[Rfam]
RNA sequence: UAAUACAGACGAAAAGAGGAGUUGUGUUAACAACCCCUCUAGUAACAGCACCGUUUAAGACGGUGGCAAGUCUAUGUUAUUUAUAA
Numbered sequence: 001u002a003a004u005a006c007a008g009a010c011g012a013a014a015a016g017a018g019g020a021g022u023u024g025u026g027u028u029a030a031c032a033a034c035c036c037c038u039c040u041a042g043u044a045a046c047a048g049c050a051c052c053g054u055u056u057a058a059g060a061c062g063g064u065g066g067c068a069a070g071u072c073u074a075u076g077u078u079a080u081u082u083a084u085a086a
Base pairs, nucleotide, nucleotide: 021034022033023032024031050064051063052062053061054060055059